[Rfam]
RNA sequence: ACCCCACACUAUUAAGCCGGCAGUUUCAGUGUAUCCUAAUUGAAAAUGUGAGCUCGUUGUGGGAACAGCAAAGUCUGCUAAUUGUGUAUGGUUGUAUUGAUUAUGUGGAUGCAAUCAAAGAAUUAUUGCGGGACA
Numbered sequence: 001a002c003c004c005c006a007c008a009c010u011a012u013u014a015a016g017c018c019g020g021c022a023g024u025u026u027c028a029g030u031g032u033a034u035c036c037u038a039a040u041u042g043a044a045a046a047u048g049u050g051a052g053c054u055c056g057u058u059g060u061g062g063g064a065a066c067a068g069c070a071a072a073g074u075c076u077g078c079u080a081a082u083u084g085u086g087u088a089u090g091g092u093u094g095u096a097u098u099g100a101u102u103a104u105g106u107g108g109a110u111g112c113a114a115u116c117a118a119a120g121a122a123u124u125a126u127u128g129c130g131g132g133a134c135a
Stems, first nucleotide, its partner, number of pairs: 020049003024045004077129002080126001089117010
Annotation: This 135-nucleotide RNA from Dufourea novaeangliae belongs to the Rfam family "Small nucleolar RNA snoR639/H1". From the family's description: snoR639 or snoH1 belongs to the H/ACA class of snoRNAs which are thought to guide the sites of modification of uridines to pseudouridines. snoH1 is found in an intron of the mfl gene in Drosophila. The pairing is the family consensus, mapped onto this sequence. Rfam 15.1 lists 77 matches to the family in 63 species. A search with the family's covariance model found it, with a score of 54 bits. Rfam classes the family as an H/ACA-box small nucleolar RNA. Rfam links the family to the GO terms nucleolus and RNA processing. The source organism's lineage runs through Eukaryota, Bilateria, Hexapoda, Aculeata and Dufourea.